[Rfam]
RNA sequence: ACACCGAAAGGAGGUGAUCCUGAAAUUGAGUAUUCUCAGGACGCGUGAGGUGGCCGUCCGCUAGCCGCCGGCCGACCCGUCGAGGUAACCGGCGGUAGGCGAAUACCAGACAGACACCCGGCCCGCAGGUCCACCGUUCGUCCACGGUGCCCGCCCGGUGCCGAGCGCAGUAGCGCCCGGUCGGGAGGGAAGUGACCUGCGGGCUGUCUGCU
Numbered sequence: 001a002c003a004c005c006g007a008a009a010g011g012a013g014g015u016g017a018u019c020c021u022g023a024a025a026u027u028g029a030g031u032a033u034u035c036u037c038a039g040g041a042c043g044c045g046u047g048a049g050g051u052g053g054c055c056g057u058c059c060g061c062u063a064g065c066c067g068c069c070g071g072c073c074g075a076c077c078c079g080u081c082g083a084g085g086u087a088a089c090c091g092g093c094g095g096u097a098g099g100c101g102a103a104u105a106c107c108a109g110a111c112a113g114a115c116a117c118c119c120g121g122c123c124c125g126c127a128g129g130u131c132c133a134c135c136g137u138u139c140g141u142c143c144a145c146g147g148u149g150c151c152c153g154c155c156c157g158g159u160g161c162c163g164a165g166c167g168c169a170g171u172a173g174c175g176c177c178c179g180g181u182c183g184g185g186a187g188g189g190a191a192g193u194g195a196c197c198u199g200c201g202g203g204c205u206g207u208c209u210g211c212u
Stems, first nucleotide, its partner, number of pairs: 013058004018053001059101004064096002067093004119206013132149006

A member of the RNA family "Actinobacteria sRNA Ms_IGR-5" from Actinospica robiniae, 212 nucleotides long. By type it is a small RNA. The pairing is the family consensus, mapped onto this sequence. The source organism's lineage runs through Bacteria, Bacillati, Actinomycetota, Actinomycetes and Actinospica robiniae. The match comes from Rfam's covariance-model search (84 bits).